[Rfam]
Shown here is a 90-nucleotide sequence from Lutibacter oricola, a member of the family "Flavo-1 RNA". Pairs were carried over by alignment from the consensus structure, which is taken from published work. It scores 63 bits against the family's covariance model. NCBI's taxonomy places the organism under Bacteria, Flavobacteriia, Flavobacteriales, Flavobacteriaceae, Lutibacter.
RNA sequence: UCCUAAUCGCGUUAGGGAUUGAAGCGGCAUCCUUUUUUUUAUGAAACAGCGUGAAAUAAAAAAAAGAUAUAGCGUAAAGCCCGACCCGAA
Numbered sequence: 001u002c003c004u005a006a007u008c009g010c011g012u013u014a015g016g017g018a019u020u021g022a023a024g025c026g027g028c029a030u031c032c033u034u035u036u037u038u039u040u041a042u043g044a045a046a047c048a049g050c051g052u053g054a055a056a057u058a059a060a061a062a063a064a065a066g067a068u069a070u071a072g073c074g075u076a077a078a079g080c081c082c083g084a085c086c087c088g089a090a
Base pairs, nucleotide, nucleotide: 015082016081017080019078020077024073025072029068030067031066035063036062037061038060039059040058041057042056